[Rfam]
RNA sequence: UUUUUCCGAUUUGUGGAAGAGGCUGAAAAUCUUGGUAGAGCGUGUGUUGUCAUCAGCUUUGUCUCUUGUUCCUACGAGAUGGGAGUUAAAUAAUGACACGAAAUUA
Numbered sequence: 001u002u003u004u005u006c007c008g009a010u011u012u013g014u015g016g017a018a019g020a021g022g023c024u025g026a027a028a029a030u031c032u033u034g035g036u037a038g039a040g041c042g043u044g045u046g047u048u049g050u051c052a053u054c055a056g057c058u059u060u061g062u063c064u065c066u067u068g069u070u071c072c073u074a075c076g077a078g079a080u081g082g083g084a085g086u087u088a089a090a091u092a093a094u095g096a097c098a099c100g101a102a103a104u105u106a
Base pairs, nucleotide, nucleotide: 043100044099045098046097047096048095049094055087056086057085058084059083060082062079063078064077065076
Shown here is a 106-nucleotide sequence from Aegilops tauschii, a member of the family "Small nucleolar RNA snoR97". It scores 72 bits against the family's covariance model. For this family Rfam cites "Experimental RNomics: identification of 140 candidates for small non-messenger RNAs in the plant Arabidopsis thaliana" (Marker et al., Curr Biol, 2002). Its family is annotated with nucleolus and RNA processing in the Gene Ontology.